[Rfam]
RNA: RcsR1 sRNA
Organism: Martelella mediterranea
RNA sequence: ACAUUGCAAAGUGGUGGUGGGCACGCUGACAGCGGCCACGAUCACGUAUGUUUUCUGAUCUGAUGAAGCCGCCCGAAAUCUGAGGCGGCUUUUUU
Numbered sequence: 001a002c003a004u005u006g007c008a009a010a011g012u013g014g015u016g017g018u019g020g021g022c023a024c025g026c027u028g029a030c031a032g033c034g035g036c037c038a039c040g041a042u043c044a045c046g047u048a049u050g051u052u053u054u055c056u057g058a059u060c061u062g063a064u065g066a067a068g069c070c071g072c073c074c075g076a077a078a079u080c081u082g083a084g085g086c087g088g089c090u091u092u093u094u095u
Base pairs, nucleotide, nucleotide: 011045012044013043014042015041017039020037021036022035024034025033026032050059051058052057066091067090068089069088070087071086072085073084074082075081